[Rfam]
Pseudomonas sRNA P26: a 61-nucleotide RNA from Oceanimonas doudoroffii. By type it is a non-coding RNA gene. The base pairs follow the family's consensus structure, which was predicted with RNAalifold. This small RNA (sRNA) was computationally identified in the genome of the opportunistic pathogen Pseudomonas aeruginosa and its expression verified by northern blot analysis. P26 is conserved across many Gammaproteobacteria species and appears to be consistently located between the DNA directed RNA polymerase (beta subunit) and 50S ribosomal protein L7/L12 genes.
RNA sequence: GACUAUAGCUUAGCGGCCUGAGCAAUCAGGCUAGGGCUGGUGAAUCUUUAUUCACCGGCCC
Numbered sequence: 001g002a003c004u005a006u007a008g009c010u011u012a013g014c015g016g017c018c019u020g021a022g023c024a025a026u027c028a029g030g031c032u033a034g035g036g037c038u039g040g041u042g043a044a045u046c047u048u049u050a051u052u053c054a055c056c057g058g059c060c061c
Stems, first nucleotide, its partner, number of pairs: 015032004035060010
Dot-bracket structure: ..............((((..........))))..((((((((((......)))))))))).